This 160-nucleotide sequence from Thalictrum thalictroides belongs to the Rfam family "U12 minor spliceosomal RNA". A reference for the family is Tarn and Steitz (1997), "Pre-mRNA splicing: the discovery of a new spliceosome doubles the challenge", Trends Biochem Sci. Pairs were carried over by alignment from the consensus structure. By type it is a spliceosomal small nuclear RNA. Lineage of the source: Eukaryota > Viridiplantae > Tracheophyta > Ranunculales > Thalictrum.
RNA sequence: UUGCCUUAAACUAAUGAGUAAGGAAAACAAAGCGAUCGGUGAGAGCCGGUCGUGCGCUAACUCAAUAAAAUUUGUUGCGCAAGAAUUUAUGGAGGGGUUAUAGGCUGGCCGAGUUGUUGACGCUGCUUACUUUUGCAGAACUCUCUCGUGCGGGCCUCCC
Numbered sequence: 001u002u003g004c005c006u007u008a009a010a011c012u013a014a015u016g017a018g019u020a021a022g023g024a025a026a027a028c029a030a031a032g033c034g035a036u037c038g039g040u041g042a043g044a045g046c047c048g049g050u051c052g053u054g055c056g057c058u059a060a061c062u063c064a065a066u067a068a069a070a071u072u073u074g075u076u077g078c079g080c081a082a083g084a085a086u087u088u089a090u091g092g093a094g095g096g097g098u099u100a101u102a103g104g105c106u107g108g109c110c111g112a113g114u115u116g117u118u119g120a121c122g123c124u125g126c127u128u129a130c131u132u133u134u135g136c137a138g139a140a141c142u143c144u145c146u147c148g149u150g151c152g153g154g155c156c157u158c159c160c
Stems, first nucleotide, its partner, number of pairs: 004023005032053008054080004096160002102157005108151001110148002113145001116142001123138004
Dot-bracket structure: ...(((((..........)))))........((((((((......))))))))((((...................))))...............((....(((((.(.((.(..(......((((........))))...)..).))..).))))).))